[Rfam]
RNA sequence: AUUCGGCGCGGCAAUGGAUCCUGCCGGGACCUUCGGUCUGAACCGCCACGUGGCUGAUGGUUCCUGUCCUUCA
Numbered sequence: 001a002u003u004c005g006g007c008g009c010g011g012c013a014a015u016g017g018a019u020c021c022u023g024c025c026g027g028g029a030c031c032u033u034c035g036g037u038c039u040g041a042a043c044c045g046c047c048a049c050g051u052g053g054c055u056g057a058u059g060g061u062u063c064c065u066g067u068c069c070u071u072c073a
Stems, first nucleotide, its partner, number of pairs: 010025004016064003020060002045054003
This 73-nucleotide sequence from Pengzhenrongella sicca belongs to the Rfam family "Fluoride riboswitch aptamer (crcB RNA motif)". Gene Ontology terms of the family: response to fluoride and positive regulation of gene expression. The base pairs follow the family's consensus structure, which is taken from published work.